[Rfam]
RNA sequence: CUGGUCCGGGCGCAGGAUGACAGUGGAGGACCCACUUCGACCCGCCCCGCGGGUCUUGGGGUGAAGCCGCAGCAGCGGCCGGGCACCUGACCGCCCGAACCCGACAGCUCACUUCACAGGCGUCGUCAGGAGAGGAU
Numbered sequence: 001c002u003g004g005u006c007c008g009g010g011c012g013c014a015g016g017a018u019g020a021c022a023g024u025g026g027a028g029g030a031c032c033c034a035c036u037u038c039g040a041c042c043c044g045c046c047c048c049g050c051g052g053g054u055c056u057u058g059g060g061g062u063g064a065a066g067c068c069g070c071a072g073c074a075g076c077g078g079c080c081g082g083g084c085a086c087c088u089g090a091c092c093g094c095c096c097g098a099a100c101c102c103g104a105c106a107g108c109u110c111a112c113u114u115c116a117c118a119g120g121c122g123u124c125g126u127c128a129g130g131a132g133a134g135g136a137u
Stems, first nucleotide, its partner, number of pairs: 004021002023117006033058002059102003067078004081096004
Dot-bracket structure: ...((..............)).((((((....((......................))(((.....((((....))))..((((........))))...))).........))))))....................
The record is a 137-nucleotide RNA from Arsenicicoccus cauae, which matches "c-di-AMP riboswitch aptamer (ydaO/yuaA leader)" in Rfam.